[Rfam]
The record is a 95-nucleotide RNA sequence from Schnuerera ultunensis, which matches "Glycine riboswitch aptamer" in Rfam.
RNA sequence: UGACACGCCCCUGGAGAGACCCUUUUUGGGCAUCGAAGAAGCAAUCUAUACAAUUGUAUAGGGAAACUUUCAGAUACAAGGACAGGGCGGUAGAG
Dot-bracket structure: .....(..(((((......(((.....))).(((((..(((...(((((........)))))....))))).))).......)))))..).....
Numbered sequence: 001u002g003a004c005a006c007g008c009c010c011c012u013g014g015a016g017a018g019a020c021c022c023u024u025u026u027u028g029g030g031c032a033u034c035g036a037a038g039a040a041g042c043a044a045u046c047u048a049u050a051c052a053a054u055u056g057u058a059u060a061g062g063g064a065a066a067c068u069u070u071c072a073g074a075u076a077c078a079a080g081g082a083c084a085g086g087g088c089g090g091u092a093g094a095g
Stems, first nucleotide, its partner, number of pairs: 006090001009087005020030003032075003035071002039069003045062005
It scores 58 bits against the family's covariance model.